[Rfam]
RNA sequence: GGGUCGGUAGCUGAGACGGUGUAGCGCCUGGUUGAAGGCCAGGAGACGAGGAUUCGAGCACCUCCCGACCCA
Numbered sequence: 001g002g003g004u005c006g007g008u009a010g011c012u013g014a015g016a017c018g019g020u021g022u023a024g025c026g027c028c029u030g031g032u033u034g035a036a037g038g039c040c041a042g043g044a045g046a047c048g049a050g051g052a053u054u055c056g057a058g059c060a061c062c063u064c065c066c067g068a069c070c071c072a
Stems, first nucleotide, its partner, number of pairs: 001071007010025004027043005048064004